[Rfam]
RNA sequence: UCCUCAUACUAAGUAGUAGUGCCGCAGGUAAACGAUUUAUUGUAUUCAUUUAUGUUGAUUACCUGCUCUCUACUCCUUGAUACGAAGA
Numbered sequence: 001u002c003c004u005c006a007u008a009c010u011a012a013g014u015a016g017u018a019g020u021g022c023c024g025c026a027g028g029u030a031a032a033c034g035a036u037u038u039a040u041u042g043u044a045u046u047c048a049u050u051u052a053u054g055u056u057g058a059u060u061a062c063c064u065g066c067u068c069u070c071u072a073c074u075c076c077u078u079g080a081u082a083c084g085a086a087g088a
Stems, first nucleotide, its partner, number of pairs: 001088002004085002007082001010079004015074005024066007
RNA: mir-252 microRNA precursor family